[Rfam]
RNA: mir-977 microRNA precursor family
Organism: Drosophila simulans
RNA sequence: UCCCAAGGUAUGGUUUAGAUAACUCGAAUAUCACAUUUUCAGUGUUCGAUAUCUGAUGAGAUAUUCACGUUGUCUAAACCAUGGUUUGUU
Numbered sequence: 001u002c003c004c005a006a007g008g009u010a011u012g013g014u015u016u017a018g019a020u021a022a023c024u025c026g027a028a029u030a031u032c033a034c035a036u037u038u039u040c041a042g043u044g045u046u047c048g049a050u051a052u053c054u055g056a057u058g059a060g061a062u063a064u065u066c067a068c069g070u071u072g073u074c075u076a077a078a079c080c081a082u083g084g085u086u087u088g089u090u
Stems, first nucleotide, its partner, number of pairs: 003088001005087003009083015026066007036059002039056004